[Rfam]
RNA sequence: AGAAUGUAAAAUCCUACCAUAGCCUCCACGUGGCGCACUCUGGGGUCGUGAUAUUUCACCAGCUAAUAUGGAGGG
Numbered sequence: 001a002g003a004a005u006g007u008a009a010a011a012u013c014c015u016a017c018c019a020u021a022g023c024c025u026c027c028a029c030g031u032g033g034c035g036c037a038c039u040c041u042g043g044g045g046u047c048g049u050g051a052u053a054u055u056u057c058a059c060c061a062g063c064u065a066a067u068a069u070g071g072a073g074g075g
Stems, first nucleotide, its partner, number of pairs: 013075003017071005022034003046061001048059004
RNA: drz-agam-1 ribozyme